The family of this 89-nucleotide sequence from Pelagibacterales bacterium SAG-MED46 is "Glycine riboswitch aptamer". It scores 68 bits against the family's covariance model. The base pairs follow the family's consensus structure. NCBI's taxonomy places the organism under Bacteria, Pseudomonadati, Pseudomonadota, Alphaproteobacteria, Candidatus Pelagibacterales.

[Rfam]
RNA sequence: UAUUGAAUUACGGGAGAGAUUACAAAUUUUGUAACACCGAAGGAGCAACCGCCCAGGAAACUCUCAGGUAAAAGGACCGUAACAUAUUA
Numbered sequence: 001u002a003u004u005g006a007a008u009u010a011c012g013g014g015a016g017a018g019a020u021u022a023c024a025a026a027u028u029u030u031g032u033a034a035c036a037c038c039g040a041a042g043g044a045g046c047a048a049c050c051g052c053c054c055a056g057g058a059a060a061c062u063c064u065c066a067g068g069u070a071a072a073a074g075g076a077c078c079g080u081a082a083c084a085u086a087u088u089a
Stems, first nucleotide, its partner, number of pairs: 008082006020034004036069003039065002043063003049056001